The record is a 204-nucleotide RNA sequence from Anaerosalibacter bizertensis, which matches "T-box leader" in Rfam. It is annotated as a cis-regulatory leader. The literature on the family includes a 1994 paper in J Bacteriol by Grundy et al., "Interaction between the acceptor end of tRNA and the T box stimulates antitermination in the Bacillus subtilis tyrS gene: a new role for the discriminator base".
RNA sequence: AGAAAUUCUAUGAAGAGGAGAGUAGAAUAUAUUUUUUGUUAAAGCGAGCUAAGGAUGGUGGAAGCUUAGUACAAAAUUAUAUUUGAAAAGAGCCUUGGAGAAUACAUCUGAAACAAGUAGGAUGAUACGUUUAUAACGUUAUAAAAAUGAGUGGGCAUUUUGCCAACAAGAGUGGUAACACGGAGUUUAACCUUCGUCUCUUUA
Numbered sequence: 001a002g003a004a005a006u007u008c009u010a011u012g013a014a015g016a017g018g019a020g021a022g023u024a025g026a027a028u029a030u031a032u033u034u035u036u037u038g039u040u041a042a043a044g045c046g047a048g049c050u051a052a053g054g055a056u057g058g059u060g061g062a063a064g065c066u067u068a069g070u071a072c073a074a075a076a077u078u079a080u081a082u083u084u085g086a087a088a089a090g091a092g093c094c095u096u097g098g099a100g101a102a103u104a105c106a107u108c109u110g111a112a113a114c115a116a117g118u119a120g121g122a123u124g125a126u127a128c129g130u131u132u133a134u135a136a137c138g139u140u141a142u143a144a145a146a147a148u149g150a151g152u153g154g155g156c157a158u159u160u161u162g163c164c165a166a167c168a169a170g171a172g173u174g175g176u177a178a179c180a181c182g183g184a185g186u187u188u189a190a191c192c193u194u195c196g197u198c199u200c201u202u203u204a
Stems, first nucleotide, its partner, number of pairs: 007101002015096004025084006037073003048070006105124005128138003154164004169201004180197005